[Rfam]
DUF805b RNA: a 33-nucleotide RNA from Spirosoma sp. KCTC 42546.
The source organism's lineage runs through Bacteria, Pseudomonadati, Bacteroidota, Cytophagaceae and Spirosoma.
It scores 44 bits against the family's covariance model.

Nucleotides: 033
Base pairs, nucleotide, nucleotide: 003020004019005018010032011031012030
Number, partner (000 for none) and nucleotide at each position: 001000g002000u003020g004019g005018c006000g007000g008000u009000a010032g011031c012030c013000g014000a015000a016000a017000a018005g019004c020003c021000a022000a023000u024000a025000g026000a027000g028000u029000a030012g031011g032010c033000a